[Rfam]
RNA sequence: GACAUGUGAUGUCUCUUCUCACGAUGGUCUUCCAAGUCCCAAGAGUGAGUGGACUUUGACGAGAGUUGCCAAAGGCCUUGCUGAUGUCAGUUC
Numbered sequence: 001g002a003c004a005u006g007u008g009a010u011g012u013c014u015c016u017u018c019u020c021a022c023g024a025u026g027g028u029c030u031u032c033c034a035a036g037u038c039c040c041a042a043g044a045g046u047g048a049g050u051g052g053a054c055u056u057u058g059a060c061g062a063g064a065g066u067u068g069c070c071a072a073a074g075g076c077c078u079u080g081c082u083g084a085u086g087u088c089a090g091u092u093c
Stems, first nucleotide, its partner, number of pairs: 001088004

Small nucleolar RNA SNORD35: a 93-nucleotide sequence from Pelodiscus sinensis.
Rfam classes the family as a C/D-box small nucleolar RNA.
Its Rfam clan is "SNORD35 clan".
Its family is annotated with nucleolus and RNA processing in the Gene Ontology.
The family has 8 seed sequences and 1,842 matches in Rfam 15.1.
Rfam's curators write: U35 is a C/D box snoRNA located in intron 6 of ribosomal protein L13A and intron 3 of ribosomal protein S11 in humans and at homologous positions in mouse and chicken ribosomal protein genes.